[Rfam]
RNA sequence: UUCUCCCCAUUCACUUUGCCAAUUAGACAUUUGUUGUCUCCAUUGGCCAUUCAGGUGGGGCAGAGACAAUAUCCUUUUAAAACCCAACCAGUUAAUACUUAAUUGGCUUGGAUCCUGUCAAAGGAAACAUAC
Numbered sequence: 001u002u003c004u005c006c007c008c009a010u011u012c013a014c015u016u017u018g019c020c021a022a023u024u025a026g027a028c029a030u031u032u033g034u035u036g037u038c039u040c041c042a043u044u045g046g047c048c049a050u051u052c053a054g055g056u057g058g059g060g061c062a063g064a065g066a067c068a069a070u071a072u073c074c075u076u077u078u079a080a081a082a083c084c085c086a087a088c089c090a091g092u093u094a095a096u097a098c099u100u101a102a103u104u105g106g107c108u109u110g111g112a113u114c115c116u117g118u119c120a121a122a123g124g125a126a127a128c129a130u131a132c
Base pairs, nucleotide, nucleotide: 035062036061037060038059039058043054044053045052046051072125073124074123075122076121077120085110086108088106089105090104091103092102093101
This 132-nucleotide RNA from Podarcis muralis belongs to the Rfam family "Small nucleolar RNA SNORA27". NCBI's taxonomy places the organism under Eukaryota, Eumetazoa, Chordata, Squamata, Podarcis. The family is grouped with related families in Rfam's "SNORA27 clan". Rfam describes the family as follows. ACA27 is a member of the H/ACA class of snoRNA that guide the sites of modification of uridines to pseudouridines. Rfam classes the family as an H/ACA-box small nucleolar RNA. The pairing is the family consensus, mapped onto this sequence.